[Rfam]
RNA sequence: GGAGGCAUUGCACACUACCAAGUUGCAUGUUGUGAGAGCCUCAGUGCAGCUUGGUGUGUGUGAUACUUUC
Numbered sequence: 001g002g003a004g005g006c007a008u009u010g011c012a013c014a015c016u017a018c019c020a021a022g023u024u025g026c027a028u029g030u031u032g033u034g035a036g037a038g039c040c041u042c043a044g045u046g047c048a049g050c051u052u053g054g055u056g057u058g059u060g061u062g063a064u065a066c067u068u069u070c
Stems, first nucleotide, its partner, number of pairs: 007064009017055012
RNA: mir-32 microRNA precursor family